[Rfam]
RNA sequence: UGCAUCACAGUGGGAGAACCGACUUUAGUCGGUGCCGAAGGAGCAACCGCCCCGGAAACUCUCAGGCUCAAGGACCGCUGCGAUAUU
Numbered sequence: 001u002g003c004a005u006c007a008c009a010g011u012g013g014g015a016g017a018a019c020c021g022a023c024u025u026u027a028g029u030c031g032g033u034g035c036c037g038a039a040g041g042a043g044c045a046a047c048c049g050c051c052c053c054g055g056a057a058a059c060u061c062u063c064a065g066g067c068u069c070a071a072g073g074a075c076c077g078c079u080g081c082g083a084u085a086u087u
Base pairs, nucleotide, nucleotide: 006082008080009079010078011077012076013075019032020031021030022029034067035066036065037063038062041061042060043059047055048054
A member of the RNA family "Glycine riboswitch aptamer" from Thalassococcus halodurans, 87 nucleotides long. About the family: This family represents the bacterial glycine riboswitch. Glycine riboswitches usually consist of two metabolite-binding aptamers domains with similar structures in tandem. The aptamers cooperatively bind glycine to regulate the expression of downstream genes. In Bacillus subtilis, this riboswitch is found upstream of the gcvT operon which controls glycine degradation. The base pairs follow the family's consensus structure.